[Rfam]
RNA: L31-Actinobacteria ribosomal protein leader
Organism: Cellulomonas fimi
RNA sequence: CCGGUCUCCGGUUCACCUGAGCGCGUCCGCGCACGGGACCCGGGGCA
Numbered sequence: 001c002c003g004g005u006c007u008c009c010g011g012u013u014c015a016c017c018u019g020a021g022c023g024c025g026u027c028c029g030c031g032c033a034c035g036g037g038a039c040c041c042g043g044g045g046c047a
Stems, first nucleotide, its partner, number of pairs: 004046001006045001008043004016037004021032004